[Rfam]
RNA sequence: GCAUCACCACAGGGGAGCCGCAUAUUGCUGCGGCUGAGAUGCGAGGCGCGAAGCCUCCGGACCCUCAAAGCUGAUCUGGGUAAUGCCAGCGUAGCAAGGAGGCUAUAUCGUGUUU
Numbered sequence: 001g002c003a004u005c006a007c008c009a010c011a012g013g014g015g016a017g018c019c020g021c022a023u024a025u026u027g028c029u030g031c032g033g034c035u036g037a038g039a040u041g042c043g044a045g046g047c048g049c050g051a052a053g054c055c056u057c058c059g060g061a062c063c064c065u066c067a068a069a070g071c072u073g074a075u076c077u078g079g080g081u082a083a084u085g086c087c088a089g090c091g092u093a094g095c096a097a098g099g100a101g102g103c104u105a106u107a108u109c110g111u112g113u114u115u
Stems, first nucleotide, its partner, number of pairs: 007102002010099001011065004017034005041058001043057004070095004076089004